[Rfam]
RNA sequence: AGGCAGCCUCCUUGCCUUAGAUCAUCAUGGCAAUGAAGGUGUUAAACUGCUCGGAUAGUAAAUAUUGCUUUUGCUCUUCAGUUUUGCUGAGAUUUAUUGAUGAAGCUGGACUAGUAAGCCUAAGCACAUU
Numbered sequence: 001a002g003g004c005a006g007c008c009u010c011c012u013u014g015c016c017u018u019a020g021a022u023c024a025u026c027a028u029g030g031c032a033a034u035g036a037a038g039g040u041g042u043u044a045a046a047c048u049g050c051u052c053g054g055a056u057a058g059u060a061a062a063u064a065u066u067g068c069u070u071u072u073g074c075u076c077u078u079c080a081g082u083u084u085u086g087c088u089g090a091g092a093u094u095u096a097u098u099g100a101u102g103a104a105g106c107u108g109g110a111c112u113a114g115u116a117a118g119c120c121u122a123a124g125c126a127c128a129u130u
Stems, first nucleotide, its partner, number of pairs: 002043004007039002009036002012033005068124003073119003080112005086106003091098002
A member of the RNA family "Small nucleolar RNA snoR77" from Hibiscus syriacus, 130 nucleotides long.
The literature on the family includes a 2002 paper in Curr Biol by Marker et al., "Experimental RNomics: identification of 140 candidates for small non-messenger RNAs in the plant Arabidopsis thaliana".
The base pairs follow the family's consensus structure, which was predicted with WAR.
The source organism's lineage runs through Eukaryota, Streptophytina, eudicotyledons, rosids and Hibiscus.
Rfam classes the family as an H/ACA-box small nucleolar RNA.